[Rfam]
RNA: mir-142 microRNA precursor family
Organism: Scophthalmus maximus
RNA sequence: CAGUGUACUCAUCCAUAAAGUAGGAAACACUACACUGUGUAAUGAAGUUUAGUAGUGCUUUCUACUUUAUGGGUGACAACACUGU
Dot-bracket structure: .............((((((((((..(.((((((..................)))))).)..))))))))))..............